[Rfam]
RNA sequence: GUAAUGAAUACACCAAAGACUUAUAUAUUCCUGGGAUAACGGCCCAGGAGUUUCUACCAGGCUUCCGAAAGCCGGACUAUGAGUUAUUCCCUUUGAUCU
Numbered sequence: 001g002u003a004a005u006g007a008a009u010a011c012a013c014c015a016a017a018g019a020c021u022u023a024u025a026u027a028u029u030c031c032u033g034g035g036a037u038a039a040c041g042g043c044c045c046a047g048g049a050g051u052u053u054c055u056a057c058c059a060g061g062c063u064u065c066c067g068a069a070a071g072c073c074g075g076a077c078u079a080u081g082a083g084u085u086a087u088u089c090c091c092u093u094u095g096a097u098c099u
Stems, first nucleotide, its partner, number of pairs: 018085008029049007058075001060073005
This 99-nucleotide sequence from Anaerostipes rhamnosivorans belongs to the Rfam family "Purine riboswitch aptamer". Rfam describes the family as follows. Riboswitches are metabolite binding domains within certain messenger RNAs that serve as precision sensors for their corresponding targets. Gene Ontology term of the family: purine nucleobase biosynthetic process.